Vault RNA: a 101-nucleotide sequence from Eleutherodactylus coqui.
Nucleotides: 101
Base pairs, nucleotide, nucleotide: 002096003095004094005093006092007091014085015084016083017082019081020080021079022078027075028074
Number, partner (000 for none) and nucleotide at each position: 001000g002096g003095g004094u005093c006092a007091g008000c009000c010000u011000c012000u013000a014085g015084c016083u017082c018000a019081g020080c021079g022078g023000u024000u025000a026000c027075u028074u029000c030000a031000u032000u033000g034000c035000a036000a037000c038000u039000g040000c041000a042000g043000a044000u045000u046000g047000u048000c049000a050000c051000u052000u053000u054000g055000u056000a057000g058000a059000a060000u061000c062000c063000u064000u065000u066000g067000g068000g069000g070000u071000u072000c073000a074028a075027a076000a077000c078022c079021c080020g081019c082017g083016g084015g085014c086000g087000c088000u089000a090000u091007c092006u093005g094004a095003c096002c097000u098000u099000u100000u101000a
Lineage of the source: Eukaryota > Opisthokonta > Craniata > Tetrapoda > Eleutherodactylus. Rfam classes the family as a non-coding RNA gene.